[Rfam]
RNA sequence: ACCAUUCACUAGGGGUGCCUUCAUUAAAGGCUGAGAUUAAAGUUAUACUUUAAGACUCUUAGAACCUGAUCUGGUUUAAACCAGCGUAGGGAAGUGGAAAUUGGUUAAU
Numbered sequence: 001a002c003c004a005u006u007c008a009c010u011a012g013g014g015g016u017g018c019c020u021u022c023a024u025u026a027a028a029g030g031c032u033g034a035g036a037u038u039a040a041a042g043u044u045a046u047a048c049u050u051u052a053a054g055a056c057u058c059u060u061a062g063a064a065c066c067u068g069a070u071c072u073g074g075u076u077u078a079a080a081c082c083a084g085c086g087u088a089g090g091g092a093a094g095u096g097g098a099a100a101u102u103g104g105u106u107a108a109u
Stems, first nucleotide, its partner, number of pairs: 006097005011059004016053001017031005038052005065090004071084004
A member of the RNA family "TPP riboswitch aptamer (THI element)" from Peribacillus saganii, 109 nucleotides long.